[Rfam]
RNA sequence: AGAUCGGGAGGCACUCUACGGGAAGUGUGCCGGGAAUUGAUCGAACUUGUGCUGUCUCAUUGGGGAACGCGACCGGUGCCCGACGGUUUCGUGUU
Numbered sequence: 001a002g003a004u005c006g007g008g009a010g011g012c013a014c015u016c017u018a019c020g021g022g023a024a025g026u027g028u029g030c031c032g033g034g035a036a037u038u039g040a041u042c043g044a045a046c047u048u049g050u051g052c053u054g055u056c057u058c059a060u061u062g063g064g065g066a067a068c069g070c071g072a073c074c075g076g077u078g079c080c081c082g083a084c085g086g087u088u089u090c091g092u093g094u095u
Stems, first nucleotide, its partner, number of pairs: 002042004010031005016025002066095005071088005
RNA: Rhodo-rpoB RNA